[Rfam]
RNA: ZMP/ZTP riboswitch aptamer (pfl RNA motif)
RNA sequence: UUGCGACCACACGACUGGCGCAGGUGGGCCACCACCAGGGAGUGACGCGCGAGGUGCAUCGAACGCCUGGGUGCCCUCG
Numbered sequence: 001u002u003g004c005g006a007c008c009a010c011a012c013g014a015c016u017g018g019c020g021c022a023g024g025u026g027g028g029c030c031a032c033c034a035c036c037a038g039g040g041a042g043u044g045a046c047g048c049g050c051g052a053g054g055u056g057c058a059u060c061g062a063a064c065g066c067c068u069g070g071g072u073g074c075c076c077u078c079g
Stems, first nucleotide, its partner, number of pairs: 003048003010044003015039002017067004024035004056074005